RNA sequence: CGAGAGAUUCAUGGCUAAGGAAUUAGGCAAAAUAGACCUGUAACUUCGGGAGAAAGGUCGCCAGCAGCAAUGCUGGCCGCAGUGAAAAGGUCCAGGCGACUGUUUAUCAAAAACACAGGGCUCUGCAAAAUCGUAAGAUGAAGUAUAGGGCCUGACACCUGCCCGGUGCUGGAAGGUUAAGAGGAGAUGUUAUCUUUCGGGAGAAGCAUUGAAUUGAAGCCCCAGUAAACGGCGGCCGUAACUAUAACGGUCCUAAGGUAGCGAAAUUCCUUGUCGGGUAAGUUCCGACCUGCACGAAUGGUGUAACGAUCUGGACACUGUCUCAGCCAUGAGCUCG
Numbered sequence: 001c002g003a004g005a006g007a008u009u010c011a012u013g014g015c016u017a018a019g020g021a022a023u024u025a026g027g028c029a030a031a032a033u034a035g036a037c038c039u040g041u042a043a044c045u046u047c048g049g050g051a052g053a054a055a056g057g058u059c060g061c062c063a064g065c066a067g068c069a070a071u072g073c074u075g076g077c078c079g080c081a082g083u084g085a086a087a088a089g090g091u092c093c094a095g096g097c098g099a100c101u102g103u104u105u106a107u108c109a110a111a112a113a114c115a116c117a118g119g120g121c122u123c124u125g126c127a128a129a130a131u132c133g134u135a136a137g138a139u140g141a142a143g144u145a146u147a148g149g150g151c152c153u154g155a156c157a158c159c160u161g162c163c164c165g166g167u168g169c170u171g172g173a174a175g176g177u178u179a180a181g182a183g184g185a186g187a188u189g190u191u192a193u194c195u196u197u198c199g200g201g202a203g204a205a206g207c208a209u210u211g212a213a214u215u216g217a218a219g220c221c222c223c224a225g226u227a228a229a230c231g232g233c234g235g236c237c238g239u240a241a242c243u244a245u246a247a248c249g250g251u252c253c254u255a256a257g258g259u260a261g262c263g264a265a266a267u268u269c270c271u272u273g274u275c276g277g278g279u280a281a282g283u284u285c286c287g288a289c290c291u292g293c294a295c296g297a298a299u300g301g302u303g304u305a306a307c308g309a310u311c312u313g314g315a316c317a318c319u320g321u322c323u324c325a326g327c328c329a330u331g332a333g334c335u336c337g
Base pairs, nucleotide, nucleotide: 001337002336003335004334009332010331011330012329013328014327015326016325018323019322020321035059036058037057038056039055044049060077061076062075063074064073065072066071078082090316091315092314093313094312095311096310097308098307101115102114103113118153119152120151121150122149123148124147125146126143130139131138132137156303157302158301159300161233162232163231166230167229168226169225170224171223172222175221176220177219181215182214186210187209188208189207190206193202194201234252235251236250237249238248239247253257263290273289274288275287276286277285278284
This 337-nucleotide part of an RNA from Flavobacterium aquatile belongs to the Rfam family "Bacterial large subunit ribosomal RNA".